RNA sequence: GGAUCGGGCCUUUCAGGCAUCCUCUCCCAAAAAACUUCCAUGGGCUGGUCCUCGGACCGGCCCUUUCUUUUUUCAUGC
Numbered sequence: 001g002g003a004u005c006g007g008g009c010c011u012u013u014c015a016g017g018c019a020u021c022c023u024c025u026c027c028c029a030a031a032a033a034a035c036u037u038c039c040a041u042g043g044g045c046u047g048g049u050c051c052u053c054g055g056a057c058c059g060g061c062c063c064u065u066u067c068u069u070u071u072u073u074c075a076u077g078c
Base pairs, nucleotide, nucleotide: 008018009017010016011015042063043062044061045060046059047058048057049056050055

This 78-nucleotide RNA from Novosphingobium malaysiense belongs to the Rfam family "Makes More Granules Regulator RNA (mmgR)".
A search with the family's covariance model found it, with a score of 48 bits.